Rfam assigns this 98-nucleotide sequence from Delphinapterus leucas to the family "mir-544 microRNA precursor family". For this family Rfam cites "Mammalian microRNAs: experimental evaluation of novel and previously annotated genes" (Chiang et al., Genes Dev, 2010). Gene Ontology terms of the family: miRNA-mediated post-transcriptional gene silencing and RISC complex.
[Rfam]
RNA sequence: AUCACCUGGGGACCUUGUUAAAGUGCAGAUUCUGAUCCAGCAGAACUGGGGUACUACCUGAGAUUCUGCAUUUACAGUAAGCUCCCAGGUGAUACCAG
Numbered sequence: 001a002u003c004a005c006c007u008g009g010g011g012a013c014c015u016u017g018u019u020a021a022a023g024u025g026c027a028g029a030u031u032c033u034g035a036u037c038c039a040g041c042a043g044a045a046c047u048g049g050g051g052u053a054c055u056a057c058c059u060g061a062g063a064u065u066c067u068g069c070a071u072u073u074a075c076a077g078u079a080a081g082c083u084c085c086c087a088g089g090u091g092a093u094a095c096c097a098g
Stems, first nucleotide, its partner, number of pairs: 003091003009085003014081006021073003025069005031063003
Dot-bracket structure: ..(((...(((..((((((.(((.(((((.(((...........................))).))))).)))..)))))).)))...))).......
The family's consensus secondary structure was predicted with RNAalifold.